[Rfam]
RNA sequence: GAAAAUUCAAAAAUGUACGUCCGUAUAAGUUUGGCGAUAAGGGCCGAGCGUUUCUACUGGAUCGCCGAAAACGAUCCUGCUACGGGAUGGUUGAAACGUCAA
Numbered sequence: 001g002a003a004a005a006u007u008c009a010a011a012a013a014u015g016u017a018c019g020u021c022c023g024u025a026u027a028a029g030u031u032u033g034g035c036g037a038u039a040a041g042g043g044c045c046g047a048g049c050g051u052u053u054c055u056a057c058u059g060g061a062u063c064g065c066c067g068a069a070a071a072c073g074a075u076c077c078u079g080c081u082a083c084g085g086g087a088u089g090g091u092u093g094a095a096a097c098g099u100c101a102a
Stems, first nucleotide, its partner, number of pairs: 020086006029049007059077006
RNA: Purine riboswitch aptamer